[Rfam]
RNA sequence: CUGUAAACAUCCUCGACUGGAAGCUGUGAGGCUGCAGAAAGGCUUUCAGUCGGAUGUUUGCAGCUGC
Numbered sequence: 001c002u003g004u005a006a007a008c009a010u011c012c013u014c015g016a017c018u019g020g021a022a023g024c025u026g027u028g029a030g031g032c033u034g035c036a037g038a039a040a041g042g043c044u045u046u047c048a049g050u051c052g053g054a055u056g057u058u059u060g061c062a063g064c065u066g067c
Stems, first nucleotide, its partner, number of pairs: 001063012016050010